[Rfam]
Rhizobiales sRNA Atu_C8: a 118-nucleotide sequence from Mycoplana dimorpha. By type it is a small RNA. For this family Rfam cites "Deep sequencing uncovers numerous small RNAs on all four replicons of the plant pathogen Agrobacterium tumefaciens" (Wilms et al., RNA Biol, 2012). A search with the family's covariance model found it, with a score of 108 bits.

RNA sequence: GAACGGUACGAAGAUUCUCGUGGUGGGACGGCGCAUGGGCAAGGUGGUGUAACCACCGGGCGAAAGCACCCAUGCGCGGUAAGCAGGCUCCGAAAGGGGCCUUUUUUUAUGCCCCCGA
Numbered sequence: 001g002a003a004c005g006g007u008a009c010g011a012a013g014a015u016u017c018u019c020g021u022g023g024u025g026g027g028a029c030g031g032c033g034c035a036u037g038g039g040c041a042a043g044g045u046g047g048u049g050u051a052a053c054c055a056c057c058g059g060g061c062g063a064a065a066g067c068a069c070c071c072a073u074g075c076g077c078g079g080u081a082a083g084c085a086g087g088c089u090c091c092g093a094a095a096g097g098g099g100c101c102u103u104u105u106u107u108u109a110u111g112c113c114c115c116c117g118a
Stems, first nucleotide, its partner, number of pairs: 004025001026114002029111001031077009043057005060067002083103001085102007